[Rfam]
RNA sequence: GGUGUGUAGGCAGUGUCAGUAGCUGAUUGUGUAAAAAUACAGCAAUCACUAUCCAUACUGCCAGCACAAC
Numbered sequence: 001g002g003u004g005u006g007u008a009g010g011c012a013g014u015g016u017c018a019g020u021a022g023c024u025g026a027u028u029g030u031g032u033a034a035a036a037a038u039a040c041a042g043c044a045a046u047c048a049c050u051a052u053c054c055a056u057a058c059u060g061c062c063a064g065c066a067c068a069a070c
Stems, first nucleotide, its partner, number of pairs: 003068004009062002012059005019052004024048007
The record is a 70-nucleotide RNA sequence from Esox lucius, which matches "mir-34 microRNA precursor family" in Rfam.
Rfam's curators write: Human mir-34a was discovered computationally and later experimentally verified. The mature sequence is excised from the 5' arm of the hairpin.
The family is grouped with related families in Rfam's "mir-34 clan".
Gene Ontology terms of the family: miRNA-mediated post-transcriptional gene silencing and RISC complex.
A reference for the family is Lim et al. (2003), "Vertebrate microRNA genes", Science.
The match comes from Rfam's covariance-model search (62 bits).